[Rfam]
RNA sequence: UGGGCACGCGCGGGAGAGACUUCGAGCCGCUGAGCCCGAAGCGCCGAAGGAGCAACCACCCCGGAAUCUCUCAGGCAGCCAGGACCGCGCGGCGCCG
Dot-bracket structure: ......(((((((......((((..............)))).(((((..(((...((.....))...))))).)))........)))))))......
RNA: Glycine riboswitch aptamer